[Rfam]
RNA: tRNA
RNA sequence: GGAGAAGUGGGUGAGUGGCUGAAACCACACCCCUGCUAAGGGUGCAUACUGUAAAAGGUAUCGAGGGUUCGAAUCCCUCCUUCUCCG
Numbered sequence: 001g002g003a004g005a006a007g008u009g010g011g012u013g014a015g016u017g018g019c020u021g022a023a024a025c026c027a028c029a030c031c032c033c034u035g036c037u038a039a040g041g042g043u044g045c046a047u048a049c050u051g052u053a054a055a056a057g058g059u060a061u062c063g064a065g066g067g068u069u070c071g072a073a074u075c076c077c078u079c080c081u082u083c084u085c086c087g
Stems, first nucleotide, its partner, number of pairs: 001086007010026003028044005063079005
Dot-bracket structure: (((((((..(((...........))).(((((.......)))))..................(((((.......)))))))))))).